[Rfam]
RNA sequence: UCGCGAUAAAGGCAAACCCUGAGCGAUCAGGGGGCGCAAAGGAAAGGAUCUUGGGCGCACAGGGAAGUGCGUCAACAAAAAGUGAAUUUGUAAGACAACAAGGAAGUAGUCUCGGUUAAAGAUAGCCUUGCCGCCGAA
Number, nucleotide and partner (000 for none) at each position: 001u000002c000003g000004c000005g000006a000007u000008a000009a000010a000011g000012g037013c036014a000015a000016a000017c032018c031019c030020u029021g028022a027023g000024c000025g000026a000027u022028c021029a020030g019031g018032g017033g000034g000035c000036g013037c012038a000039a000040a000041g131042g000043a129044a000045a128046g127047g126048a123049u122050c121051u120052u119053g000054g000055g000056c000057g000058c000059a000060c000061a000062g000063g000064g000065a000066a000067g000068u000069g000070c000071g000072u000073c000074a000075a000076c000077a000078a000079a000080a000081a000082g000083u000084g000085a000086a000087u000088u000089u000090g000091u000092a000093a000094g000095a000096c000097a000098a000099c000100a000101a000102g000103g000104a000105a000106g000107u000108a000109g000110u000111c000112u000113c000114g000115g000116u000117u000118a000119a052120a051121g050122a049123u048124a000125g000126c047127c046128u045129u043130g000131c041132c000133g000134c000135c000136g000137a000138a000
The family of this 138-nucleotide RNA from Candidatus Brocadia sinica is "c-di-GMP-I riboswitch aptamer". It scores 47 bits against the family's covariance model.